[Rfam]
RNA sequence: UCUUCAUUUCACACACUCUCUCGCCUCUCUGACCGGUGAGAGAGUGUGGAAAAUGGAGAGA
Numbered sequence: 001u002c003u004u005c006a007u008u009u010c011a012c013a014c015a016c017u018c019u020c021u022c023g024c025c026u027c028u029c030u031g032a033c034c035g036g037u038g039a040g041a042g043a044g045u046g047u048g049g050a051a052a053a054u055g056g057a058g059a060g061a
Base pairs, nucleotide, nucleotide: 001059002058003057004056005055006054007053012048013047014046015045016044017043019041020040021039022038
Record summary
This 61-nucleotide RNA sequence from Pristionchus pacificus belongs to the Rfam family "mir-8364 microRNA precursor family". The family's consensus secondary structure was predicted with RNAalifold. Its family is annotated with RISC complex and miRNA-mediated post-transcriptional gene silencing in the Gene Ontology.